Notes:
Shown here is a 212-nucleotide RNA sequence from Parasphingorhabdus halotolerans, a member of the family "permuted transfer-messenger RNA".

RNA sequence: GGUGAUAAAUUGUGAUGUGCAAUAGACACAGCGGACCCGGGGGCAGUACCCGGCGGCUCCACCAUCUAUUUCGUUUCGGCGAAGUAAUUGAAGGGGCCGAACCAGGAUCGACGUGUGUUCAAAAGCAUUAUUUUUGCCCGGCCUGAGUAUGCCGUGAUUGCUCGCAAACUAUAAGUGCAAACGAUAAUGAAGCACUCGCUAUUGCUGCCUAA
Dot-bracket structure: (((((.........((((........(((.(((...(((((.......)))))(((((((................................)))))))............)))))).......)))).....)))))((((........))))..........................................................
Overview:
The base pairs follow the family's consensus structure, which is taken from published work. A search with the family's covariance model found it, with a score of 137 bits.